A member of the RNA family "Mammalian CPEB3 ribozyme" from Chrysemys picta, 76 nucleotides long.

RNA sequence: AGUUGCUACCUUGGGUCAUAGCAGGAGCGUUCAUGUUGUGGCCCCUGUCAGAUUCUCAGAAUCUGCUCAUGCUGUU
Numbered sequence: 001a002g003u004u005g006c007u008a009c010c011u012u013g014g015g016u017c018a019u020a021g022c023a024g025g026a027g028c029g030u031u032c033a034u035g036u037u038g039u040g041g042c043c044c045c046u047g048u049c050a051g052a053u054u055c056u057c058a059g060a061a062u063c064u065g066c067u068c069a070u071g072c073u074g075u076u
Base pairs, nucleotide, nucleotide: 013044014043015042016041017040020076021075022074023073024072026070027039028038029037049065050064051063052062053061054060055059
The match comes from Rfam's covariance-model search (53 bits). The mammalian CPEB3 ribozyme is a self cleaving RNA located in the second intron of the CPEB3 gene which belongs to a family of genes regulating messenger RNA polyadenylation. This ribozyme is highly conserved and found only in mammals. The CPEB3 ribozyme is structurally and biochemically related to the human hepatitis delta virus (HDV) ribozyme and the HDV ribozyme is proposed to have arisen from the human transcriptome. There is currently only one other known self cleaving ribozyme in mammals, the CoTC motif. The family's consensus secondary structure is taken from published work. NCBI's taxonomy places the organism under Eukaryota, Sauropsida, Testudines, Emydidae, Chrysemys picta.